[Rfam]
RNA: Archaeal large subunit ribosomal RNA, nucleotides 645 to 907
RNA sequence: GAGUGGAUCUGUCUGACAAGUCUAACUAGAGCAUCUAGGAAGGCGCAGGGAAACCAACAUGGCCGCAGGGCUUUGCCCGAGGGCCGCCGUGUUCAAGCGCGGGGAGUCAGACGGAUCCGACCCGAAUCCGAGCGAUCUAUGCGCGAGCAAGGUGAAGCGUGCCGAAAGGCACGUGGAGGCCUGUUAGAGUUGGUGUCCUACAAUACCCUCUCGUGACUCGUGUAUAGGGGUGAAAGGCCCAUCGAGCUCGGCAACAGCUGGUU
Numbered sequence: 001g002a003g004u005g006g007a008u009c010u011g012u013c014u015g016a017c018a019a020g021u022c023u024a025a026c027u028a029g030a031g032c033a034u035c036u037a038g039g040a041a042g043g044c045g046c047a048g049g050g051a052a053a054c055c056a057a058c059a060u061g062g063c064c065g066c067a068g069g070g071c072u073u074u075g076c077c078c079g080a081g082g083g084c085c086g087c088c089g090u091g092u093u094c095a096a097g098c099g100c101g102g103g104g105a106g107u108c109a110g111a112c113g114g115a116u117c118c119g120a121c122c123c124g125a126a127u128c129c130g131a132g133c134g135a136u137c138u139a140u141g142c143g144c145g146a147g148c149a150a151g152g153u154g155a156a157g158c159g160u161g162c163c164g165a166a167a168g169g170c171a172c173g174u175g176g177a178g179g180c181c182u183g184u185u186a187g188a189g190u191u192g193g194u195g196u197c198c199u200a201c202a203a204u205a206c207c208c209u210c211u212c213g214u215g216a217c218u219c220g221u222g223u224a225u226a227g228g229g230g231u232g233a234a235a236g237g238c239c240c241a242u243c244g245a246g247c248u249c250g251g252c253a254a255c256a257g258c259u260g261g262u263u
Base pairs, nucleotide, nucleotide: 005118006117007116008115009114010113011112012111013110014109015108016107017106020044021043022042023041026038027037028036029035048055049054061085062084063083064082068078069077070076071075088101089100090099091098121261122260124258128251129250130249131248132247133246137227138226139225140224141223142222143221144220145219146218147217148215150182151181152180153179157174158173159172160171161170162169163168187212188211189210192208193207195206196205229239230238231237